[Rfam]
RNA sequence: CCAGGGACUUGCGUCCCUGGCUACUGCAUGCCGUCGCUUUGCGACU
Numbered sequence: 001c002c003a004g005g006g007a008c009u010u011g012c013g014u015c016c017c018u019g020g021c022u023a024c025u026g027c028a029u030g031c032c033g034u035c036g037c038u039u040u041g042c043g044a045c046u
Base pairs, nucleotide, nucleotide: 001020002019003018004017005016006015007014008013033045034044035043036042037041

The record is a 46-nucleotide RNA sequence from Rosistilla oblonga, which matches "Acido-Lenti-1 RNA" in Rfam.
NCBI's taxonomy places the organism under Bacteria, Planctomycetota, Planctomycetia, Pirellulaceae, Rosistilla.
By type it is a small RNA.